[Rfam]
permuted transfer-messenger RNA: a 222-nucleotide RNA from Alsobacter metallidurans. Rfam classes the family as a non-coding RNA gene. Rfam links the family to the GO term RNA catabolic process. A reference for the family is Mao et al. (2010), "Variations on the tmRNA gene", RNA Biol. Pairs were carried over by alignment from the consensus structure, which is taken from published work. Bacterial tmRNA, also known as 10Sa RNA or SsrA, is named for its dual tRNA and mRNA-like properties. Its role is to liberate the mRNA from a stalled ribosome. To accomplish this part of the tmRNA is used as a reading frame that ends in a translation stop signal. The broken mRNA is replaced in the ribosome by the tmRNA and translation of the tmRNA leads to addition of a proteolysis tag to the incomplete protein enabling recognition by a protease.
RNA sequence: GGCGAUAAACGGUCAUCAGAAUAAGCCUUACGGACCCGGGGGCGGUACCCGGCGCCUCCACCAGAACCCAGUCUCGGCUCUCCGGAGCUGGGCUCCGGCGGGGGCGAAACAGGAUCGACGUGGGUGUAAAAGGUGCUCUUUCGCUCGGCAUGGUACCGCCGUUAUCGGGCUAAACUUAUAGUUGCCAACGACAACUAUGCUCAGGUUGCGGUGGCCGCGUAA
Numbered sequence: 001g002g003c004g005a006u007a008a009a010c011g012g013u014c015a016u017c018a019g020a021a022u023a024a025g026c027c028u029u030a031c032g033g034a035c036c037c038g039g040g041g042g043c044g045g046u047a048c049c050c051g052g053c054g055c056c057u058c059c060a061c062c063a064g065a066a067c068c069c070a071g072u073c074u075c076g077g078c079u080c081u082c083c084g085g086a087g088c089u090g091g092g093c094u095c096c097g098g099c100g101g102g103g104g105c106g107a108a109a110c111a112g113g114a115u116c117g118a119c120g121u122g123g124g125u126g127u128a129a130a131a132g133g134u135g136c137u138c139u140u141u142c143g144c145u146c147g148g149c150a151u152g153g154u155a156c157c158g159c160c161g162u163u164a165u166c167g168g169g170c171u172a173a174a175c176u177u178a179u180a181g182u183u184g185c186c187a188a189c190g191a192c193a194a195c196u197a198u199g200c201u202c203a204g205g206u207u208g209c210g211g212u213g214g215c216c217g218c219g220u221a222a
Stems, first nucleotide, its partner, number of pairs: 001145005014135004026124003030121003036052005053106007146161004
Dot-bracket structure: (((((........((((........(((.(((...(((((.......)))))(((((((........................................)))))))............)))))).......)))).....)))))((((........)))).............................................................